[Rfam]
Nucleotides: 040
Base pairs, nucleotide, nucleotide: 003040004039005038007035008034009033010032015029016028017027019025020024
Number, partner (000 for none) and nucleotide at each position: 001000u002000c003040g004039g005038u006000u007035c008034u009033g010032g011000u012000u013000c014000a015029c016028g017027g018000c019025g020024c021000c022000c023000g024020g025019c026000a027017c028016c029015g030000a031000c032010c033009c034008a035007g036000c037000g038005a039004c040003c